[Rfam]
RNA sequence: UACUUAUGGAGAGGUGCUGUAAUUAAUAGUAUUUAUUCUUAGUCGGCAGACUUUGAGGAAUAAAAAAAGGAAUUAUGGCCGAAGGAAAAGGUUUGGCAAAAGUUUUUUCUGGCUUUGCACAAAAUAUGUGUAGGGCUGUCACUUGAAAAAGUGGAGAGCUGCAUAGGUA
Numbered sequence: 001u002a003c004u005u006a007u008g009g010a011g012a013g014g015u016g017c018u019g020u021a022a023u024u025a026a027u028a029g030u031a032u033u034u035a036u037u038c039u040u041a042g043u044c045g046g047c048a049g050a051c052u053u054u055g056a057g058g059a060a061u062a063a064a065a066a067a068a069g070g071a072a073u074u075a076u077g078g079c080c081g082a083a084g085g086a087a088a089a090g091g092u093u094u095g096g097c098a099a100a101a102g103u104u105u106u107u108u109c110u111g112g113c114u115u116u117g118c119a120c121a122a123a124a125u126a127u128g129u130g131u132a133g134g135g136c137u138g139u140c141a142c143u144u145g146a147a148a149a150a151g152u153g154g155a156g157a158g159c160u161g162c163a164u165a166g167g168u169a
Stems, first nucleotide, its partner, number of pairs: 006164003010160002016079009032064008083110008092101003111137011139154006
Record summary
The family of this 169-nucleotide RNA sequence from Clostridium botulinum is "Lysine riboswitch aptamer". A search with the family's covariance model found it, with a score of 106 bits. About the family: Riboswitches are metabolite binding domains within certain messenger RNAs that serve as precision sensors for their corresponding targets. Taxonomically the source falls in Clostridium botulinum A (Bacteria, Clostridia, Eubacteriales, Clostridium botulinum).